[Rfam]
RNA sequence: CUGUCUCUUGCUUCAACGGUGUUUGGACGGAACCG
Numbered sequence: 001c002u003g004u005c006u007c008u009u010g011c012u013u014c015a016a017c018g019g020u021g022u023u024u025g026g027a028c029g030g031a032a033c034c035g
Stems, first nucleotide, its partner, number of pairs: 001035001003033002006031003010028001012027005017021001
The record is a 35-nucleotide RNA sequence from Myotis lucifugus, which matches "Iron response element I" in Rfam. For this family Rfam cites "Identification of the iron-responsive element for the translational regulation of human ferritin mRNA" (Hentze et al., Science, 1987). The family's RNA type in Rfam is cis-regulatory element. Taxonomically the source falls in Myotis (Eukaryota, Eutheria, Laurasiatheria, Yangochiroptera). A search with the family's covariance model found it, with a score of 42 bits.